[Rfam]
RNA: Ribosomal protein L10 leader
Organism: Radiobacillus deserti
RNA sequence: CAAUUUAAAUACGUUAUACCGUAGACAGUGGGUGCACAUCGUGCUUAAUAUCCUGCCGAGGUUAUCGAUAUAGAAUGGUACGAACGCUAUUAUCAUGUCUAAUCAAAACCUCCAUGUCUACAUGGAGGUUUUUUUUCAUGGUCAU
Numbered sequence: 001c002a003a004u005u006u007a008a009a010u011a012c013g014u015u016a017u018a019c020c021g022u023a024g025a026c027a028g029u030g031g032g033u034g035c036a037c038a039u040c041g042u043g044c045u046u047a048a049u050a051u052c053c054u055g056c057c058g059a060g061g062u063u064a065u066c067g068a069u070a071u072a073g074a075a076u077g078g079u080a081c082g083a084a085c086g087c088u089a090u091u092a093u094c095a096u097g098u099c100u101a102a103u104c105a106a107a108a109c110c111u112c113c114a115u116g117u118c119u120a121c122a123u124g125g126a127g128g129u130u131u132u133u134u135u136u137c138a139u140g141g142u143c144a145u
Stems, first nucleotide, its partner, number of pairs: 028056005034044003107130010